[Rfam]
RNA sequence: GUAGAUGCUCAUUCCACCCAUUAUGUUUGCCCCGGCUUCAUAAACCUGGGAAUGAUGCAGAGCCAAUUUACAGUGCCUAUUGUCAUCCUGACCGAUAACGCGCAAGCGCUAUCAUCCAGAAGGCAAAACGUUGAGUGAGGCACUAAAUCUGUUGUCCUAGACCUGAUUGUUUUUAGACACUUGUCUUCCAGACAAGUGUUUUUUU
Numbered sequence: 001g002u003a004g005a006u007g008c009u010c011a012u013u014c015c016a017c018c019c020a021u022u023a024u025g026u027u028u029g030c031c032c033c034g035g036c037u038u039c040a041u042a043a044a045c046c047u048g049g050g051a052a053u054g055a056u057g058c059a060g061a062g063c064c065a066a067u068u069u070a071c072a073g074u075g076c077c078u079a080u081u082g083u084c085a086u087c088c089u090g091a092c093c094g095a096u097a098a099c100g101c102g103c104a105a106g107c108g109c110u111a112u113c114a115u116c117c118a119g120a121a122g123g124c125a126a127a128a129c130g131u132u133g134a135g136u137g138a139g140g141c142a143c144u145a146a147a148u149c150u151g152u153u154g155u156c157c158u159a160g161a162c163c164u165g166a167u168u169g170u171u172u173u174u175a176g177a178c179a180c181u182u183g184u185c186u187u188c189c190a191g192a193c194a195a196g197u198g199u200u201u202u203u204u205u
Stems, first nucleotide, its partner, number of pairs: 001063002006059003009055004015050001017049001020041001027035001029033001072144007082124003094113004154162003176200011
The record is a 205-nucleotide RNA sequence from Rahnella aquatilis, which matches "GlmZ RNA activator of glmS mRNA" in Rfam. The family's consensus secondary structure is taken from published work. Rfam's curators write: This RNA was discovered in E. coli during a large scale screen. The sraJ gene was expressed in early logarithmic phase, but its level decreased with cell growth. Specific cleavage products of this RNA were found. For this family Rfam cites "Novel small RNA-encoding genes in the intergenic regions of Escherichia coli" (Argaman et al., Curr Biol, 2001).